The family of this 122-nucleotide RNA sequence from Gossypium hirsutum is "MIR7504 microRNA precursor family".
RNA sequence: AAUAGGAAGAUGACAAAUUAGAUUUUUUUCUUCUAAUUCUCAGCUUUUUCUUCCUGAAAAUUUCAAAUACAACUGAAAAAGUUAAAAAUUAGGAGAAAAAUUUAAGUUGUCAUCUUCCUAUC
Numbered sequence: 001a002a003u004a005g006g007a008a009g010a011u012g013a014c015a016a017a018u019u020a021g022a023u024u025u026u027u028u029u030c031u032u033c034u035a036a037u038u039c040u041c042a043g044c045u046u047u048u049u050c051u052u053c054c055u056g057a058a059a060a061u062u063u064c065a066a067a068u069a070c071a072a073c074u075g076a077a078a079a080a081g082u083u084a085a086a087a088a089u090u091a092g093g094a095g096a097a098a099a100a101u102u103u104a105a106g107u108u109g110u111c112a113u114c115u116u117c118c119u120a121u122c
Stems, first nucleotide, its partner, number of pairs: 002121015018105005025100004030095009040085001042083002046079004

Lineage of the source: Eukaryota > malvids > Malvales > Malvaceae > Gossypium.
The match comes from Rfam's covariance-model search (87 bits).
The base pairs follow the family's consensus structure, which was predicted with RNAalifold.